Notes: The record is a 54-nucleotide RNA sequence from Chanos chanos, which matches "UnaL2 LINE 3' element" in Rfam. The family's consensus secondary structure is taken from published work. It is annotated as a cis-regulatory element. The match comes from Rfam's covariance-model search (56 bits).
RNA sequence: UUUUUCACUGAUUGUAAGUCGCUUUGGCUAAAAGCGUCUGCCAAAUAACUAAAC
Numbered sequence: 001u002u003u004u005u006c007a008c009u010g011a012u013u014g015u016a017a018g019u020c021g022c023u024u025u026g027g028c029u030a031a032a033a034g035c036g037u038c039u040g041c042c043a044a045a046u047a048a049c050u051a052a053a054c
Base pairs, nucleotide, nucleotide: 013043014041015040016039020036021035022034023033024032025031